[Rfam]
RNA sequence: CUCUUAUCAAGAGAGGUGGAGGGACUGGCCCUUUGAAACCUCGGCAGCGGACACUUUUGCACCGUGCCAAUUCCAGCAAGCGAUUAAGCUUGGAAGAUAAGAA
Numbered sequence: 001c002u003c004u005u006a007u008c009a010a011g012a013g014a015g016g017u018g019g020a021g022g023g024a025c026u027g028g029c030c031c032u033u034u035g036a037a038a039c040c041u042c043g044g045c046a047g048c049g050g051a052c053a054c055u056u057u058u059g060c061a062c063c064g065u066g067c068c069a070a071u072u073c074c075a076g077c078a079a080g081c082g083a084u085u086a087a088g089c090u091u092g093g094a095a096g097a098u099a100a101g102a103a
Stems, first nucleotide, its partner, number of pairs: 002102007013042005021031003025076004043068004048064002050060001053057001072095001077092005
RNA: SAM riboswitch aptamer (S box leader)